The family of this 130-nucleotide RNA sequence is "Small Cajal body specific RNA 24".
[Rfam]
RNA sequence: UGGACAUUUAUUUUUAUUCAGUUUCUUCUCAAGUUGAAGAUAACUCUUUGUAAAUGUCCUAGAGAAAUAUAGUAGCUUUCUGUUCACCCUUUGCAAGUAAAAAGGGUGGAUCGUUCCACUACUGACAUUU
Numbered sequence: 001u002g003g004a005c006a007u008u009u010a011u012u013u014u015u016a017u018u019c020a021g022u023u024u025c026u027u028c029u030c031a032a033g034u035u036g037a038a039g040a041u042a043a044c045u046c047u048u049u050g051u052a053a054a055u056g057u058c059c060u061a062g063a064g065a066a067a068u069a070u071a072g073u074a075g076c077u078u079u080c081u082g083u084u085c086a087c088c089c090u091u092u093g094c095a096a097g098u099a100a101a102a103a104g105g106g107u108g109g110a111u112c113g114u115u116c117c118a119c120u121a122c123u124g125a126c127a128u129u130u
Stems, first nucleotide, its partner, number of pairs: 002059010020045004024040005070124006089104004
The family's consensus secondary structure was predicted with RNAfold. Rfam links the family to the GO terms nucleolus, Cajal body and RNA processing. It is one of the family's seed sequences. The family's RNA type in Rfam is small Cajal body RNA. The family is grouped with related families in Rfam's "SCARNA3 clan". The family has 23 seed sequences and 689 matches in Rfam 15.1. Rfam's curators write: scaRNAs are a specific class of small nuclear RNAs which localise to the Cajal bodies and guide the modification of RNA polymerase II transcribed spliceosomal RNAs U1, U2, U4, U5 and U12. ACA12 belongs to the H/ACA box class of guide RNAs as it has the predicted hairpin-hinge-hairpin-tail structure,the conserved H/ACA-box motifs and is found associated with GAR1. A reference for the family is Darzacq et al. (2002), "Cajal body-specific small nuclear RNAs: a novel class of 2'-O-methylation and pseudouridylation guide RNAs", EMBO J.